[Rfam]
RNA: SucA RNA motif
RNA sequence: UCGCAUCCGCAAAACGGUCCAGCCGUGAUCGCGGAAGGUUAAUUAACCGGCUACUUCCAAAAAACGGGGUAGCAAACUUAUGUUUCCUGAAAGGAAACGGAGGUCAGCG
Numbered sequence: 001u002c003g004c005a006u007c008c009g010c011a012a013a014a015c016g017g018u019c020c021a022g023c024c025g026u027g028a029u030c031g032c033g034g035a036a037g038g039u040u041a042a043u044u045a046a047c048c049g050g051c052u053a054c055u056u057c058c059a060a061a062a063a064a065c066g067g068g069g070u071a072g073c074a075a076a077c078u079u080a081u082g083u084u085u086c087c088u089g090a091a092a093g094g095a096a097a098c099g100g101a102g103g104u105c106a107g108c109g
Stems, first nucleotide, its partner, number of pairs: 002109003006035005015025004038073003076104003082098007